Shown here is a 103-nucleotide RNA sequence from Colidextribacter sp. OB.20, a member of the family "azaaromatic riboswitch aptamer (yjdF RNA)".
RNA sequence: AGGGGCGGGGAUAAAAACACAGGGCGGUUGGUAGUCCGCCCGCGGGCCGCGCUCCCGUCAGUAGCCUUCCCUCCCAGGGUCGUCCCUUCCCCGACGCGGAAUU
Numbered sequence: 001a002g003g004g005g006c007g008g009g010g011a012u013a014a015a016a017a018c019a020c021a022g023g024g025c026g027g028u029u030g031g032u033a034g035u036c037c038g039c040c041c042g043c044g045g046g047c048c049g050c051g052c053u054c055c056c057g058u059c060a061g062u063a064g065c066c067u068u069c070c071c072u073c074c075c076a077g078g079g080u081c082g083u084c085c086c087u088u089c090c091c092c093g094a095c096g097c098g099g100a101a102u103u
Stems, first nucleotide, its partner, number of pairs: 004095001006093006022041006042058005069079003
The match comes from Rfam's covariance-model search (78 bits). Lineage of the source: Bacteria > Bacillati > Bacillota > Clostridia > Colidextribacter.